[Rfam]
The record is a 121-nucleotide RNA sequence from Brevibacillus sp. SYP-B805, which matches "SAM riboswitch aptamer (S box leader)" in Rfam.
RNA sequence: AUCUUAUCCAGAGAGGUGGAGGGACUGGCCCGAUGAAACCCGGCAGCGGAUCCGUUUGAGCGCGAUGCGCCCAGACGGAUGCUGUGCCAAUUCCAGCAGGAGCAUUCCUGACAGAUAAGGC
Numbered sequence: 001a002u003c004u005u006a007u008c009c010a011g012a013g014a015g016g017u018g019g020a021g022g023g024a025c026u027g028g029c030c031c032g033a034u035g036a037a038a039c040c041c042g043g044c045a046g047c048g049g050a051u052c053c054g055u056u057u058g059a060g061c062g063c064g065a066u067g068c069g070c071c072c073a074g075a076c077g078g079a080u081g082c083u084g085u086g087c088c089a090a091u092u093c094c095a096g097c098a099g100g101a102g103c104a105u106u107c108c109u110g111a112c113a114g115a116u117a118a119g120g121c
Stems, first nucleotide, its partner, number of pairs: 002120007013041001015040003021031003025096004042088004047084002050080009092113001097110005

NCBI's taxonomy places the organism under Bacteria, Bacillati, Bacillota, Bacilli, Brevibacillus. The match comes from Rfam's covariance-model search (78 bits).